[Rfam]
RNA sequence: GGCCCAACGGAAAGAAAAAAUACAUGUUAAAACAUGUUGUGUGGGCAGCGAACGAAUUGGACAGAUUUGGAUUAGCAGAAAGCCUGUUGGAGGCC
Numbered sequence: 001g002g003c004c005c006a007a008c009g010g011a012a013a014g015a016a017a018a019a020a021u022a023c024a025u026g027u028u029a030a031a032a033c034a035u036g037u038u039g040u041g042u043g044g045g046c047a048g049c050g051a052a053c054g055a056a057u058u059g060g061a062c063a064g065a066u067u068u069g070g071a072u073u074a075g076c077a078g079a080a081a082g083c084c085u086g087u088u089g090g091a092g093g094c095c
Base pairs, nucleotide, nucleotide: 001095002094003093004092005089006088007087008086009085010084
This 95-nucleotide RNA from Lentivirus humimdef2 belongs to the Rfam family "HIV gag stem loop 3 (GSL3)". The family's RNA type in Rfam is cis-regulatory element. It scores 46 bits against the family's covariance model. From the family's description: This family consists of several HIV gag stem loop 3 (GSL3) sequences. GSL3 is known to direct specific packaging of HIV-1 genomic RNA. Deletion of GSL3 leads to decreases in both viral RNA packaging and dimerisation. NCBI's taxonomy places the organism under Viruses, Pararnavirae, Ortervirales, Lentivirus, Lentivirus humimdef2. Rfam links the family to the GO term viral RNA genome packaging.